RNA sequence: UGAUGAGGUAGAGGUUGCAGCUGUUAUUAGUACAGACUAGGAGAUCAGGAGAGAUCGUUGAUUAGACUGAAAAGGAACAGCUGCCGAAGCUGGAUGGAUUCUCCAAUCCUACUGGCUGGGCCUGCUCCCGAAUAGGGGCAGGACUGUCACGUCAGUCGCAAAGCUGGCGUGUUGCGCUAUCUUUGUG
Numbered sequence: 001u002g003a004u005g006a007g008g009u010a011g012a013g014g015u016u017g018c019a020g021c022u023g024u025u026a027u028u029a030g031u032a033c034a035g036a037c038u039a040g041g042a043g044a045u046c047a048g049g050a051g052a053g054a055u056c057g058u059u060g061a062u063u064a065g066a067c068u069g070a071a072a073a074g075g076a077a078c079a080g081c082u083g084c085c086g087a088a089g090c091u092g093g094a095u096g097g098a099u100u101c102u103c104c105a106a107u108c109c110u111a112c113u114g115g116c117u118g119g120g121c122c123u124g125c126u127c128c129c130g131a132a133u134a135g136g137g138g139c140a141g142g143a144c145u146g147u148c149a150c151g152u153c154a155g156u157c158g159c160a161a162a163g164c165u166g167g168c169g170u171g172u173u174g175c176g177c178u179a180u181c182u183u184u185g186u187g
Base pairs, nucleotide, nucleotide: 006182007181008180009179010178011177017084018083019082020081021080022079023078024077025076033069034068035067037065038064039063040062088117089116090115091114092113093112096109097108098107099106118145119144121142122141123140124139125138126137127136128135148171149170150169151168152167153166154165155164
Shown here is a 187-nucleotide RNA from Terribacillus saccharophilus, a member of the family "Lysine riboswitch aptamer".